RNA sequence: GCCGAGUUGGGUAGCGCCAACUUGUCACUCAAGUGAGGGCCCCAAGUUGAUGGAACACAGCAUGGCUUGCUAGGUUGGGUUAGAAGGUGCAACAAGGUGGCUUGCCCACUCCAAGUUGAGAGAUUGAACCAUGUGGCUCGAGCGAAAGCCCAGGCCUCAUGGUUUCCUAGACUUUGAGGGUACAGCGUGAGGCUGGUUUCACAGAGCAGCGACAACCUCUGGCUCUUAACAGUGGAGGGAUAACAGGUUGCCGCACCUCUGGUCCACAAAGACCUGGUCAGCCAAGUUGCUUGAACCAUCAUUUUU
Numbered sequence: 001g002c003c004g005a006g007u008u009g010g011g012u013a014g015c016g017c018c019a020a021c022u023u024g025u026c027a028c029u030c031a032a033g034u035g036a037g038g039g040c041c042c043c044a045a046g047u048u049g050a051u052g053g054a055a056c057a058c059a060g061c062a063u064g065g066c067u068u069g070c071u072a073g074g075u076u077g078g079g080u081u082a083g084a085a086g087g088u089g090c091a092a093c094a095a096g097g098u099g100g101c102u103u104g105c106c107c108a109c110u111c112c113a114a115g116u117u118g119a120g121a122g123a124u125u126g127a128a129c130c131a132u133g134u135g136g137c138u139c140g141a142g143c144g145a146a147a148g149c150c151c152a153g154g155c156c157u158c159a160u161g162g163u164u165u166c167c168u169a170g171a172c173u174u175u176g177a178g179g180g181u182a183c184a185g186c187g188u189g190a191g192g193c194u195g196g197u198u199u200c201a202c203a204g205a206g207c208a209g210c211g212a213c214a215a216c217c218u219c220u221g222g223c224u225c226u227u228a229a230c231a232g233u234g235g236a237g238g239g240a241u242a243a244c245a246g247g248u249u250g251c252c253g254c255a256c257c258u259c260u261g262g263u264c265c266a267c268a269a270a271g272a273c274c275u276g277g278u279c280a281g282c283c284a285a286g287u288u289g290c291u292u293g294a295a296c297c298a299u300c301a302u303u304u305u306u
Stems, first nucleotide, its partner, number of pairs: 001040003004023007028037003044305003048301006056293002060288001061286001063284005069278008077265008086257004097251008106239002109237005115230008126165008135156004140151001142149002174221001176219004186211003193204003
Shown here is a 306-nucleotide RNA sequence from Abrus precatorius, a member of the family "Plant signal recognition particle RNA". The family's consensus secondary structure is taken from published work. Clan: SRP clan. The family's RNA type in Rfam is non-coding RNA gene. Its family is annotated with signal recognition particle, endoplasmic reticulum targeting and SRP-dependent cotranslational protein targeting to membrane, signal sequence recognition in the Gene Ontology. A search with the family's covariance model found it, with a score of 222 bits.